[Rfam]
RNA sequence: CCGUGCUAGGUGGGGAAUUAGCGGUGCCCUGUACUUGCAAUCCGCUAUAGCAAGACUGAAUCCCUUCCCGAGGUUUAUGCGCUGCGAGGUCUGCCCUUUGUAAGUAGUGUUGACGUUUGGGUUCUACGCAACGGAAACAUGUGAACCCUGUCAGGUCCGGAAGGAAGCAGCAGUAAGCAUGACCUUUCGUGUGCCGUGGAGUUGCCUGAAUCGAGCCAACUGCUUAGGUAACGCUUGUGGUGCAUAGAUCGACGGAAGGUGCGCGG
Numbered sequence: 001c002c003g004u005g006c007u008a009g010g011u012g013g014g015g016a017a018u019u020a021g022c023g024g025u026g027c028c029c030u031g032u033a034c035u036u037g038c039a040a041u042c043c044g045c046u047a048u049a050g051c052a053a054g055a056c057u058g059a060a061u062c063c064c065u066u067c068c069c070g071a072g073g074u075u076u077a078u079g080c081g082c083u084g085c086g087a088g089g090u091c092u093g094c095c096c097u098u099u100g101u102a103a104g105u106a107g108u109g110u111u112g113a114c115g116u117u118u119g120g121g122u123u124c125u126a127c128g129c130a131a132c133g134g135a136a137a138c139a140u141g142u143g144a145a146c147c148c149u150g151u152c153a154g155g156u157c158c159g160g161a162a163g164g165a166a167g168c169a170g171c172a173g174u175a176a177g178c179a180u181g182a183c184c185u186u187u188c189g190u191g192u193g194c195c196g197u198g199g200a201g202u203u204g205c206c207u208g209a210a211u212c213g214a215g216c217c218a219a220c221u222g223c224u225u226a227g228g229u230a231a232c233g234c235u236u237g238u239g240g241u242g243c244a245u246a247g248a249u250c251g252a253c254g255g256a257a258g259g260u261g262c263g264c265g266g
Base pairs, nucleotide, nucleotide: 001266002265003264004263005262006261009057010056011055012030013029014028015027017025018024019023034054035053036052037051038050063259064258065257066256067255068254072250073249074248075247076246079243080242081241082240083239084238085237086236087235088234092230093229096227097226100223101222104220105219107216108215115211116210117209118208119207120206121205122204123200124199125198126197127196128195129191130190132189133188134187135186136185138181139180140179141178142177148173149172150171151170156165157164158163
The family of this 266-nucleotide RNA sequence from Geomicrobium sp. JCM 19038 is "Bacterial large signal recognition particle RNA". NCBI's taxonomy places the organism under Bacteria, Bacillati, Bacilli, Caryophanales, Geomicrobium. The literature on the family includes a 2003 paper in Nucleic Acids Res by Rosenblad et al., "SRPDB: Signal Recognition Particle Database". A search with the family's covariance model found it, with a score of 224 bits. It is annotated as a non-coding RNA gene. From the family's description: The signal recognition particle (SRP) is a universally conserved ribonucleoprotein involved in the co-translational targeting of proteins to membranes.